RNA: Ribosomal protein L19 leader
RNA sequence: ACGAUGUUCCGCUGCAAUGAUAGCAAAGCAUAUGCAAGAACAUUUG
Numbered sequence: 001a002c003g004a005u006g007u008u009c010c011g012c013u014g015c016a017a018u019g020a021u022a023g024c025a026a027a028g029c030a031u032a033u034g035c036a037a038g039a040a041c042a043u044u045u046g
Base pairs, nucleotide, nucleotide: 003044004043005042006041007040008039009038013036014035017031018030